RNA sequence: AAUAAGGGUAGAGGUGCGAAACUAAAGAGUAGAGGCUUGGAGAAGUAUGAGAUUCGAUGAAAAGCUUUGAAAGGGAGUUUUGCCGAAGCAAAAACAAGGCUCAUUCCUGUUUUUGCUGGUCUAAGCAUUUAAGAAAUGCUGGACUGUCAAGAUGUGUGGUACAUCUUGGAGAGCUAUCUCGCAU
Number, nucleotide and partner (000 for none) at each position: 001a000002a000003u000004a000005a000006g179007g178008g177009u176010a175011g174012a000013g000014g000015u000016g083017c082018g081019a080020a079021a078022c077023u076024a000025a000026a000027g000028a000029g000030u000031a000032g068033a067034g066035g065036c064037u063038u062039g000040g000041a000042g000043a000044a000045g000046u000047a000048u000049g000050a000051g000052a000053u000054u000055c000056g000057a000058u000059g000060a000061a000062a038063a037064g036065c035066u034067u033068u032069g000070a000071a000072a000073g000074g000075g000076a023077g022078u021079u020080u019081u018082g017083c016084c000085g000086a000087a117088g116089c115090a114091a113092a112093a111094a110095c109096a108097a000098g106099g000100c000101u000102c000103a000104u000105u000106c098107c000108u096109g095110u094111u093112u092113u091114u090115g089116c088117u087118g145119g144120u143121c142122u141123a140124a000125g139126c138127a137128u136129u135130u000131a000132a000133g000134a000135a129136a128137u127138g126139c125140u123141g122142g121143a120144c119145u118146g000147u169148c168149a167150a166151g165152a164153u163154g000155u000156g000157u000158g000159g000160u000161a000162c000163a153164u152165c151166u150167u149168g148169g147170a000171g000172a000173g000174c011175u010176a009177u008178c007179u006180c000181g000182c000183a000184u000
RNA: Lysine riboswitch aptamer